[Rfam]
Nucleotides: 106
Stems, first nucleotide, its partner, number of pairs: 002105007013043005021032003026082004044074004049070002052066004078098001083095005
Number, partner (000 for none) and nucleotide at each position: 001000a002105u003104g004103u005102u006101a007100u008099c009000c010000a011000g012000a013043a014042a015041g016040g017039u018000u019000g020000a021032g022031g023030g024000a025000u026082u027081a028080g029079a030023c031022c032021c033000u034000a035000u036000g037000a038000a039017a040016c041015c042014u043013u044074a045073g046072c047071a048000a049070c050069c051000c052066u053065u054064u055063g056000c057000a058000a059000a060000a061000g062000c063055c064054a065053a066052g067000a068000a069050g070049g071047u072046g073045c074044u075000a076000c077000g078098u079029u080028c081027u082026a083095c084094c085093a086092a087091g088000a089000u090000a091087u092086u093085u094084g095083g096000a097000c098078a099008g100007a101006u102005a103004a104003c105002a106000a

Rfam assigns this 106-nucleotide RNA sequence from Soonwooa buanensis to the family "SAM riboswitch aptamer (S box leader)". Its family is annotated with regulation of gene expression in the Gene Ontology. The organism belongs to Soonwooa, within Bacteria. The match comes from Rfam's covariance-model search (80 bits). The family's consensus secondary structure is taken from published work.